[Rfam]
RNA sequence: CCUUCAGAUAGAGGCGCGGUGUUCAUCAGUAUCGUCUGGGAGGGGCCGUAACCCCGGUGACCAUACGAAAAAGGGACCAUCGCCGAAGGUCAGCCUGCGUUACGGCACGGUCGUCCUGGAUGCCGCGGAGAAUAUCCCGUCGUCUGUCACUGCAUAGAACGAUUCGCGCUGUGCCGGUGGAGUGCUGUCUUGGUU
Numbered sequence: 001c002c003u004u005c006a007g008a009u010a011g012a013g014g015c016g017c018g019g020u021g022u023u024c025a026u027c028a029g030u031a032u033c034g035u036c037u038g039g040g041a042g043g044g045g046c047c048g049u050a051a052c053c054c055c056g057g058u059g060a061c062c063a064u065a066c067g068a069a070a071a072a073g074g075g076a077c078c079a080u081c082g083c084c085g086a087a088g089g090u091c092a093g094c095c096u097g098c099g100u101u102a103c104g105g106c107a108c109g110g111u112c113g114u115c116c117u118g119g120a121u122g123c124c125g126c127g128g129a130g131a132a133u134a135u136c137c138c139g140u141c142g143u144c145u146g147u148c149a150c151u152g153c154a155u156a157g158a159a160c161g162a163u164u165c166g167c168g169c170u171g172u173g174c175c176g177g178u179g180g181a182g183u184g185c186u187g188u189c190u191u192g193g194u195u
Base pairs, nucleotide, nucleotide: 006190007189008188009187010186011185016083017082018081019080020079021078023076024075032068033067034066035065037063038062039061087117088116089115091113093111094110095109096107097106098105118145119144120143121142122141124139125138127136128135147180148179149178150177151176152175